[Rfam]
Notes
Shown here is a 93-nucleotide RNA sequence from Loigolactobacillus bifermentans, a member of the family "Selenocysteine transfer RNA". The source organism's lineage runs through Bacteria, Bacilli, Lactobacillaceae, Loigolactobacillus and Loigolactobacillus bifermentans.
RNA sequence: GGGAGUGGAUGGGUUCUGGUGUUCCCUCUGGUCUUCAAAACCAGUACGAGGGGUUAAAAGCCUCUUAGGUAGGUUCGAUUCCUACACAUUCCC
Numbered sequence: 001g002g003g004a005g006u007g008g009a010u011g012g013g014u015u016c017u018g019g020u021g022u023u024c025c026c027u028c029u030g031g032u033c034u035u036c037a038a039a040a041c042c043a044g045u046a047c048g049a050g051g052g053g054u055u056a057a058a059a060g061c062c063u064c065u066u067a068g069g070u071a072g073g074u075u076c077g078a079u080u081c082c083u084a085c086a087c088a089u090u091c092c093c
Stems, first nucleotide, its partner, number of pairs: 001093007008085001011026003016021001028044005048065001050063002070084004